RNA sequence: AUACUCUGAUGGUUGCAUAGUCCAGCAGAUGGGAUCAGGAAGAAAUGUCGCAUGUGUCUGGUGUAUCU
Numbered sequence: 001a002u003a004c005u006c007u008g009a010u011g012g013u014u015g016c017a018u019a020g021u022c023c024a025g026c027a028g029a030u031g032g033g034a035u036c037a038g039g040a041a042g043a044a045a046u047g048u049c050g051c052a053u054g055u056g057u058c059u060g061g062u063g064u065a066u067c068u
Stems, first nucleotide, its partner, number of pairs: 001066004006038005013028004043055001045053003
Small nucleolar RNA SNORD77: a 68-nucleotide RNA from Colobus angolensis. Rfam 15.1 lists 396 matches to the family in 167 species. Its family is annotated with RNA processing and nucleolus in the Gene Ontology. Pairs were carried over by alignment from the consensus structure, which was predicted with RNAalifold. The literature on the family includes a 2004 paper in Curr Biol by Tycowski et al., "Guide RNAs with 5' caps and novel box C/D snoRNA-like domains for modification of snRNAs in metazoa". U77 belongs to the C/D family of snoRNAs. It is predicted to guide 2'O-ribose methylation of large 28S rRNA subunit at position A1521. The C/D snoRNAs U44, U47, U74, U75, U76, U78, U79, U80 and U81 share the same host gene as U77 (non-coding).